Guanidine-I riboswitch aptamer: a 105-nucleotide RNA from Paenibacillus swuensis. Rfam links the family to the GO term regulation of gene expression.
RNA sequence: UAUAAAGUUUUCUAGGGUUCCGCAGCCGUUUCGGCUGGCUGGUCCGAGGGAAAACGCGUUGCCAUAAUGCAGCGCCUUGCACGGAGGGACAAAAGCCCGGGAGAU
Dot-bracket structure: ......((((((..((...(((((((((...)))))).).)).))....))))))(((((((......))))))...).(.[...(((.......))).)..]..
For this family Rfam cites "New RNA motifs suggest an expanded scope for riboswitches in bacterial genetic control" (Barrick et al., Proc Natl Acad Sci U S A, 2004).